Record summary
c-di-AMP riboswitch aptamer (ydaO/yuaA leader): a 174-nucleotide RNA from Corynebacterium maris. A search with the family's covariance model found it, with a score of 42 bits. NCBI's taxonomy places the organism under Bacteria, Actinomycetota, Mycobacteriales, Corynebacteriaceae, Corynebacterium maris. A reference for the family is Barrick et al. (2004), "New RNA motifs suggest an expanded scope for riboswitches in bacterial genetic control", Proc Natl Acad Sci U S A.
RNA sequence: ACGGCAGAUCCGCCGGAUGCCCGCACGAGAGCCGGGGACCCAGACACACCCAGGGGUUCAUUCCGCGGACGGGGUGCACGAAGAUCGCGAGCGAUCGUCGGCACGGAGGACGCGGGAGGGAAAAUUCUGUUUCCUCACCCGACAGCUAACUCGGCAGACGCACAGAGAACUUGG
Numbered sequence: 001a002c003g004g005c006a007g008a009u010c011c012g013c014c015g016g017a018u019g020c021c022c023g024c025a026c027g028a029g030a031g032c033c034g035g036g037g038a039c040c041c042a043g044a045c046a047c048a049c050c051c052a053g054g055g056g057u058u059c060a061u062u063c064c065g066c067g068g069a070c071g072g073g074g075u076g077c078a079c080g081a082a083g084a085u086c087g088c089g090a091g092c093g094a095u096c097g098u099c100g101g102c103a104c105g106g107a108g109g110a111c112g113c114g115g116g117a118g119g120g121a122a123a124a125u126u127c128u129g130u131u132u133c134c135u136c137a138c139c140c141g142a143c144a145g146c147u148a149a150c151u152c153g154g155c156a157g158a159c160g161c162a163c164a165g166a167g168a169a170c171u172u173g174g
Base pairs, nucleotide, nucleotide: 011160012159014157018030031155032154033153034152035151036150041053054140055139056138062116063115064114065113066112067111119134120133121132122131